Notes:
The record is a 150-nucleotide RNA sequence from Pteropus vampyrus, which matches "U12 minor spliceosomal RNA" in Rfam. For this family Rfam cites "Pre-mRNA splicing: the discovery of a new spliceosome doubles the challenge" (Tarn and Steitz, Trends Biochem Sci, 1997). It scores 135 bits against the family's covariance model. Taxonomically the source falls in Pteropus (Eukaryota, Teleostomi, Dipnotetrapodomorpha, Theria). Clan: U2 clan. Gene Ontology terms of the family: pre-mRNA branch point binding, U12 snRNP and mRNA branch site recognition.
[Rfam]
RNA sequence: AUGCCUUAAACUUAUGAGUAAGGAAAAUAACGAUUUGGGAUGACGCCCAAAUCCUUACUGCCAAUUGGAGAAGCAUUUUUGAGCGGGUAAAGGUUGCCCCUAAGGUGAUCUGCUUACUUUGCAGGAUGCCUAAGAGAGGUGAUCUGCCUG
Numbered sequence: 001a002u003g004c005c006u007u008a009a010a011c012u013u014a015u016g017a018g019u020a021a022g023g024a025a026a027a028u029a030a031c032g033a034u035u036u037g038g039g040a041u042g043a044c045g046c047c048c049a050a051a052u053c054c055u056u057a058c059u060g061c062c063a064a065u066u067g068g069a070g071a072a073g074c075a076u077u078u079u080u081g082a083g084c085g086g087g088u089a090a091a092g093g094u095u096g097c098c099c100c101u102a103a104g105g106u107g108a109u110c111u112g113c114u115u116a117c118u119u120u121g122c123a124g125g126a127u128g129c130c131u132a133a134g135a136g137a138g139g140u141g142a143u144c145u146g147c148c149u150g
Stems, first nucleotide, its partner, number of pairs: 004023005032053008054070003084150005091145007100134002103131005109125005